The family of this 237-nucleotide RNA sequence from Ferrovibrio terrae is "permuted transfer-messenger RNA". Pairs were carried over by alignment from the consensus structure, which is taken from published work. It scores 150 bits against the family's covariance model. Lineage of the source: Bacteria > Pseudomonadota > Alphaproteobacteria > Rhodospirillaceae > Ferrovibrio.

[Rfam]
RNA sequence: GGCGAUAAACGCCGUGCGGAAUAGGCGUUACGGACCCGGGGGCAGUACCCGGCGCCUCCACCAUGAGCCCAGACUGGUGACCCCAGAUUGGGCCGUUAUCGGCCACUCUGGGCUGAUGCUGGGGGCGAAUCAGCUUCGACGUGCGCAGUAAAAACACGGUUUUUGCCCGGCAUGAUACCGCCGUUAUCGGGUCAACCUCUAAGUGCCAACGACAAUCGCGUUGCACUCGCUGCCUAA
Numbered sequence: 001g002g003c004g005a006u007a008a009a010c011g012c013c014g015u016g017c018g019g020a021a022u023a024g025g026c027g028u029u030a031c032g033g034a035c036c037c038g039g040g041g042g043c044a045g046u047a048c049c050c051g052g053c054g055c056c057u058c059c060a061c062c063a064u065g066a067g068c069c070c071a072g073a074c075u076g077g078u079g080a081c082c083c084c085a086g087a088u089u090g091g092g093c094c095g096u097u098a099u100c101g102g103c104c105a106c107u108c109u110g111g112g113c114u115g116a117u118g119c120u121g122g123g124g125g126c127g128a129a130u131c132a133g134c135u136u137c138g139a140c141g142u143g144c145g146c147a148g149u150a151a152a153a154a155c156a157c158g159g160u161u162u163u164u165g166c167c168c169g170g171c172a173u174g175a176u177a178c179c180g181c182c183g184u185u186a187u188c189g190g191g192u193c194a195a196c197c198u199c200u201a202a203g204u205g206c207c208a209a210c211g212a213c214a215a216u217c218g219c220g221u222u223g224c225a226c227u228c229g230c231u232g233c234c235u236a237a
Base pairs, nucleotide, nucleotide: 001167002166003165004164005163014157015156016155026145027144028143030142031141032140036052037051038050039049040048053127054126055125056124057123058122059121168183169182170181171180